This 115-nucleotide sequence from Carpinus fangiana belongs to the Rfam family "MIR828 microRNA precursor family". The family has 16 seed sequences and 204 matches in Rfam 15.1. The family's consensus secondary structure was predicted with RNAalifold. Gene Ontology terms of the family: RISC complex and miRNA-mediated post-transcriptional gene silencing. The literature on the family includes a 2010 paper in Plant Cell by Fahlgren et al., "MicroRNA gene evolution in Arabidopsis lyrata and Arabidopsis thaliana". The match comes from Rfam's covariance-model search (69 bits). NCBI's taxonomy places the organism under Eukaryota, Euphyllophyta, rosids, fabids, Carpinus.

Nucleotides: 115
Base pairs, nucleotide, nucleotide: 004112005111007109008108010106011105012104013103014102015101016100017099018098019097020096021095022094023093025091026090029087030086
Number, partner (000 for none) and nucleotide at each position: 001000u002000u003000a004112a005111c006000a007109u008108u009000g010106c011105u012104u013103g014102c015101u016100c017099a018098a019097a020096u021095g022094a023093g024000c025091a026090u027000c028000u029087c030086a031000a032000a033000a034000a035000c036000a037000g038000u039000a040000g041000c042000a043000c044000c045000c046000a047000g048000c049000a050000u051000c052000a053000u054000g055000g056000u057000g058000a059000u060000c061000g062000u063000c064000a065000a066000u067000c068000a069000g070000c071000a072000u073000g074000u075000g076000c077000a078000a079000c080000u081000g082000u083000g084000g085000u086030u087029g088000g089000a090026a091025u092000a093023c094022u095021c096020a097019u098018u099017u100016g101015a102014g103013c104012a105011a106010g107000a108008a109007a110000c111005g112004u113000u114000a115000c